[Rfam]
The family of this 121-nucleotide RNA from Geomesophilobacter sediminis is "Molybdenum/Tungsten riboswitch aptamer (Moco RNA motif)". Taxonomically the source falls in Geomesophilobacter (Bacteria, Pseudomonadati, Desulfuromonadia, Geobacterales). Pairs were carried over by alignment from the consensus structure, which is taken from published work. It scores 62 bits against the family's covariance model.
RNA sequence: CGAAUCCCACAUCUCCGAGCCACGGCACCUACCAGGGAUGCGCCUUAUGGUACCGCGGCCUGCGGGUAGCGCUGGAAACGGCACUGCCUUCCUUUUGAAAAGGAGAUCCUGUCGCGGCGGA
Numbered sequence: 001c002g003a004a005u006c007c008c009a010c011a012u013c014u015c016c017g018a019g020c021c022a023c024g025g026c027a028c029c030u031a032c033c034a035g036g037g038a039u040g041c042g043c044c045u046u047a048u049g050g051u052a053c054c055g056c057g058g059c060c061u062g063c064g065g066g067u068a069g070c071g072c073u074g075g076a077a078a079c080g081g082c083a084c085u086g087c088c089u090u091c092c093u094u095u096u097g098a099a100a101a102g103g104a105g106a107u108c109c110u111g112u113c114g115c116g117g118c119g120g121a
Stems, first nucleotide, its partner, number of pairs: 011107006019059003023055003027051003034045003064089006071082004090098002